[Rfam]
RNA sequence: CCUUUGGAGCGAUAUAGAAAAACUAGAUUAGCUUAGUUUUUAGUGAAAUAGGUCGCCAUGAAUUAGGAA
Numbered sequence: 001c002c003u004u005u006g007g008a009g010c011g012a013u014a015u016a017g018a019a020a021a022a023c024u025a026g027a028u029u030a031g032c033u034u035a036g037u038u039u040u041u042a043g044u045g046a047a048a049u050a051g052g053u054c055g056c057c058a059u060g061a062a063u064u065a066g067g068a069a
Base pairs, nucleotide, nucleotide: 001067002066003065009056010055011054012053013052023051024050025049031044032043033042
RNA: RAGATH-18 RNA